Notes: A member of the RNA family "ASpks TB sRNA" from Streptomyces silvensis, 75 nucleotides long. Lineage of the source: Bacteria > Bacillati > Actinomycetes > Kitasatosporales > Streptomyces.
RNA sequence: CUUCACCGACCCCAGCCACAGCGGUCGGUCCGCGGGCCGGUCCUGGCCGUACGUGGCCAGGAGGGCGUCCGCCUC
Numbered sequence: 001c002u003u004c005a006c007c008g009a010c011c012c013c014a015g016c017c018a019c020a021g022c023g024g025u026c027g028g029u030c031c032g033c034g035g036g037c038c039g040g041u042c043c044u045g046g047c048c049g050u051a052c053g054u055g056g057c058c059a060g061g062a063g064g065g066c067g068u069c070c071g072c073c074u075c
Stems, first nucleotide, its partner, number of pairs: 015025003031071002038065001043060003047056003